bZIP non canonical Hac1/Xbp1 intron: a 70-nucleotide sequence from Penicillium cosmopolitanum. For this family Rfam cites "Conserved RNA structures in the non-canonical Hac1/Xbp1 intron" (Hooks and Griffiths-Jones, RNA Biol, 2011). Rfam classes the family as a small RNA. Lineage of the source: Eukaryota > Dikarya > saccharomyceta > Eurotiomycetes > Penicillium.
RNA sequence: UGAGGCCUCCGACGCGACACAACAUCCUGCCGCGAUGUUGUGCGACCUGCAGUGUCCGUCGGUAGCCUCG
Numbered sequence: 001u002g003a004g005g006c007c008u009c010c011g012a013c014g015c016g017a018c019a020c021a022a023c024a025u026c027c028u029g030c031c032g033c034g035a036u037g038u039u040g041u042g043c044g045a046c047c048u049g050c051a052g053u054g055u056c057c058g059u060c061g062g063u064a065g066c067c068u069c070g
Stems, first nucleotide, its partner, number of pairs: 001070006010061005021039006044056003